[Rfam]
RNA sequence: ACAGUCACCGAAUAGUAACACGACGCAGCAUACAGACGAAUGGAAUUAUUCCAUUAUAUCUCACGCUGUGGGGAAAGUCCCCGGACCGACGGACACCCAUUUGUACAUAAUUGGAGAGCUCACCAAUUGGUGAUUUUGAUGGGGUCUGGUGUAGAAGUUUGCUAGUACUCCAGUUGGAGUGCAGCUAUAGGCUUCUGCAUUGAAUGUCUACGCAACUGAUAAAUGGCGAAGAUACGAGCCCACAUUGGAUGUGUAGACAGCAAUAGAUUGUCGCAUAAGAAAGUUAUAGUGUUGGCUGUGCUACAGCAACAGAAUGGGGCUUACAAUUGGUGUUUA
Numbered sequence: 001a002c003a004g005u006c007a008c009c010g011a012a013u014a015g016u017a018a019c020a021c022g023a024c025g026c027a028g029c030a031u032a033c034a035g036a037c038g039a040a041u042g043g044a045a046u047u048a049u050u051c052c053a054u055u056a057u058a059u060c061u062c063a064c065g066c067u068g069u070g071g072g073g074a075a076a077g078u079c080c081c082c083g084g085a086c087c088g089a090c091g092g093a094c095a096c097c098c099a100u101u102u103g104u105a106c107a108u109a110a111u112u113g114g115a116g117a118g119c120u121c122a123c124c125a126a127u128u129g130g131u132g133a134u135u136u137u138g139a140u141g142g143g144g145u146c147u148g149g150u151g152u153a154g155a156a157g158u159u160u161g162c163u164a165g166u167a168c169u170c171c172a173g174u175u176g177g178a179g180u181g182c183a184g185c186u187a188u189a190g191g192c193u194u195c196u197g198c199a200u201u202g203a204a205u206g207u208c209u210a211c212g213c214a215a216c217u218g219a220u221a222a223a224u225g226g227c228g229a230a231g232a233u234a235c236g237a238g239c240c241c242a243c244a245u246u247g248g249a250u251g252u253g254u255a256g257a258c259a260g261c262a263a264u265a266g267a268u269u270g271u272c273g274c275a276u277a278a279g280a281a282a283g284u285u286a287u288a289g290u291g292u293u294g295g296c297u298g299u300g301c302u303a304c305a306g307c308a309a310c311a312g313a314a315u316g317g318g319g320c321u322u323a324c325a326a327u328u329g330g331u332g333u334u335u336a
Stems, first nucleotide, its partner, number of pairs: 003335002006332006016294006024070006039055007075322003079319004200263003206258006213251002225240003296306004

Overview:
The record is a 336-nucleotide RNA from Wallemia mellicola, which matches "RNase MRP" in Rfam. About the family: RNase MRP is an enzymatically active ribonucleoprotein with two distinct roles in eukaryotes. Clan: RNaseP clan. Lineage of the source: Eukaryota > Fungi > Basidiomycota > Wallemiomycotina > Wallemia. The base pairs follow the family's consensus structure, which is taken from published work. Gene Ontology terms of the family: ribonuclease MRP activity, ribonuclease MRP complex and rRNA processing.